[Rfam]
RNA: Ribosomal protein L10 leader
Organism: Leptolinea tardivitalis
RNA sequence: AGAUCGAAUAUUUCUUCACCGCAGAAAGUUGGUGCCGCUUGGCGGCUUAAUAUCCGGCCGAGGUGGAGACAUUCACAAGCCAGAGAAAUCUGUCUAUUUGAAUUGAAUGUCUUUACCGGAGCACUAUACGGUAAAGACUUUUUUAUUCUGAGA
Number, nucleotide and partner (000 for none) at each position: 001a000002g000003a000004u000005c000006g000007a000008a000009u000010a000011u000012u000013u000014c000015u000016u000017c000018a000019c000020c000021g000022c000023a000024g000025a000026a000027a000028g058029u057030u056031g055032g054033u000034g046035c045036c044037g000038c000039u000040u000041g000042g000043c000044g036045g035046c034047u000048u000049a000050a000051u000052a000053u000054c032055c031056g030057g029058c028059c000060g000061a000062g000063g000064u000065g000066g000067a000068g000069a000070c000071a000072u000073u000074c000075a000076c000077a000078a000079g000080c000081c000082a000083g000084a000085g000086a000087a000088a000089u000090c000091u000092g000093u000094c000095u000096a000097u000098u000099u000100g000101a000102a000103u000104u000105g000106a000107a000108u000109g138110u137111c136112u135113u134114u133115a132116c131117c130118g129119g000120a000121g000122c000123a000124c000125u000126a000127u000128a000129c118130g117131g116132u115133a114134a113135a112136g111137a110138c109139u000140u000141u000142u000143u000144u000145a000146u000147u000148c000149u000150g000151a000152g000153a000